RNA sequence: CUUACAGAUUUCUUUGGCAUUCUGUCCACCUCCUUCUAUGUAAAUAAGUGUAUCCUGUAUACCUGUAUAUAUGUAUGUAUUGUGUUUUAAAGAGGGAGGUGUGCAUACUGCCAAUAGACAUCUGUUAG
Number, nucleotide and partner (000 for none) at each position: 001c000002u000003u000004a000005c000006a000007g000008a000009u000010u000011u118012c000013u000014u114015u113016g112017g111018c110019a109020u000021u000022c000023u105024g104025u103026c000027c101028a100029c099030c098031u097032c096033c095034u094035u093036c092037u091038a000039u000040g000041u000042a000043a000044a000045u000046a000047a000048g000049u000050g000051u000052a000053u000054c000055c000056u000057g000058u000059a000060u000061a000062c000063c000064u000065g000066u000067a000068u000069a000070u000071a000072u000073g000074u000075a000076u000077g000078u000079a000080u000081u000082g000083u000084g000085u000086u000087u000088u000089a000090a000091a037092g036093a035094g034095g033096g032097a031098g030099g029100u028101g027102u000103g025104c024105a023106u000107a000108c000109u019110g018111c017112c016113a015114a014115u000116a000117g000118a011119c000120a000121u000122c000123u000124g000125u000126u000127a000128g000

This 128-nucleotide RNA from Eutrema salsugineum belongs to the Rfam family "MIR394 microRNA precursor family".
For this family Rfam cites "Computational identification of plant microRNAs and their targets, including a stress-induced miRNA" (Jones-Rhoades and Bartel, Mol Cell, 2004).
Gene Ontology terms of the family: miRNA-mediated post-transcriptional gene silencing and RISC complex.
Taxonomically the source falls in Eutrema (Eukaryota, malvids, Brassicales, Brassicaceae).